[Rfam]
RNA sequence: GCUGGCACAAUGAUGAUAAGUGUUUGCCGUUUACCCAGCUGAGGGCUUCUUUGAAGAAAUUUUCUAAGACUGAGAUGCCAGU
Numbered sequence: 001g002c003u004g005g006c007a008c009a010a011u012g013a014u015g016a017u018a019a020g021u022g023u024u025u026g027c028c029g030u031u032u033a034c035c036c037a038g039c040u041g042a043g044g045g046c047u048u049c050u051u052u053g054a055a056g057a058a059a060u061u062u063u064c065u066a067a068g069a070c071u072g073a074g075a076u077g078c079c080a081g082u
Stems, first nucleotide, its partner, number of pairs: 001082007
Shown here is an 82-nucleotide RNA sequence from Dipodomys ordii, a member of the family "Small nucleolar RNA SNORD87". The family has 10 seed sequences and 539 matches in Rfam 15.1. Rfam classes the family as a C/D-box small nucleolar RNA. A reference for the family is Gogolevskaya et al. (2002), "U87 RNA, a novel C/D box small nucleolar RNA from mammalian cells", Gene.